Record summary:
A member of the RNA family "tRNA" from Ostreobium quekettii, 84 nucleotides long.
RNA sequence: GCACAAGUGCCCGAGUGGUCGAAGGGGUUGGACUUAAGUUCCAAUGGAUUAGUUUCCGCGUGGGUUCGAACCCCACCUUGUGCA
Numbered sequence: 001g002c003a004c005a006a007g008u009g010c011c012c013g014a015g016u017g018g019u020c021g022a023a024g025g026g027g028u029u030g031g032a033c034u035u036a037a038g039u040u041c042c043a044a045u046g047g048a049u050u051a052g053u054u055u056c057c058g059c060g061u062g063g064g065u066u067c068g069a070a071c072c073c074c075a076c077c078u079u080g081u082g083c084a
Stems, first nucleotide, its partner, number of pairs: 001083007010026003028044005060076005
NCBI's taxonomy places the organism under Eukaryota, Viridiplantae, Chlorophyta, Ulvophyceae, Ostreobium. Transfer RNA (tRNA) molecules are approximately 80 nucleotides in length. Their secondary structure includes four short double-helical elements and three loops (D, anti-codon, and T loops). It scores 59 bits against the family's covariance model.